[Rfam]
RNA sequence: CGCCCGGUCAUUGGGGAGUAGUCGCGCUGCCGUCUUAAUAAACGGCGGUGGCUUGCGUCAACACACUUGGCCCACAGGCCAUGGCGCAAGCGGUUUCCACGCCUGGCAAGACCUUUGACCACGAUGCCUCCGACCUGGCCGGGGAUGCGUCGUGGUCAACCGUCCCGCUUCCGGCCAUUU
Numbered sequence: 001c002g003c004c005c006g007g008u009c010a011u012u013g014g015g016g017a018g019u020a021g022u023c024g025c026g027c028u029g030c031c032g033u034c035u036u037a038a039u040a041a042a043c044g045g046c047g048g049u050g051g052c053u054u055g056c057g058u059c060a061a062c063a064c065a066c067u068u069g070g071c072c073c074a075c076a077g078g079c080c081a082u083g084g085c086g087c088a089a090g091c092g093g094u095u096u097c098c099a100c101g102c103c104u105g106g107c108a109a110g111a112c113c114u115u116u117g118a119c120c121a122c123g124a125u126g127c128c129u130c131c132g133a134c135c136u137g138g139c140c141g142g143g144g145a146u147g148c149g150u151c152g153u154g155g156u157c158a159a160c161c162g163u164c165c166c167g168c169u170u171c172c173g174g175c176c177a178u179u180u
Stems, first nucleotide, its partner, number of pairs: 026049007051091010068081005
The record is a 180-nucleotide RNA sequence from Rubrivivax sp. A210, which matches "Manganese Mn2+ riboswitch aptamer (yybP-ykoY)" in Rfam.
Lineage of the source: Bacteria > Pseudomonadota > Betaproteobacteria > Sphaerotilaceae > Rubrivivax.
The match comes from Rfam's covariance-model search (87 bits).
This RNA was originally discovered in E. coli during a large scale screen and was named SraF. The family was later found to exist upstream of related families of protein genes in many bacteria, including the the yybP and ykoK genes in B. subtilis. The specific functions of these proteins are unknown, but this structured RNA element may be involved in their genetic regulation as a riboswitch.